[Rfam]
A member of the RNA family "Small nucleolar SNORD12/SNORD106" from Xenopus laevis, 91 nucleotides long. Rfam links the family to the GO terms RNA processing and nucleolus. The family's consensus secondary structure was predicted with RNAalifold. Lineage of the source: Eukaryota > Metazoa > Gnathostomata > Pipoidea > Xenopus.

RNA sequence: UCUGCUGUGCGUGAUGACUUACACUUUUUUCCCCAUCAGAUCGACAGUGUUGACCAUAAUCUGUUUUAAGCCAAACUGUCUGAUACACAGA
Numbered sequence: 001u002c003u004g005c006u007g008u009g010c011g012u013g014a015u016g017a018c019u020u021a022c023a024c025u026u027u028u029u030u031c032c033c034c035a036u037c038a039g040a041u042c043g044a045c046a047g048u049g050u051u052g053a054c055c056a057u058a059a060u061c062u063g064u065u066u067u068a069a070g071c072c073a074a075a076c077u078g079u080c081u082g083a084u085a086c087a088c089a090g091a
Stems, first nucleotide, its partner, number of pairs: 001091004006087004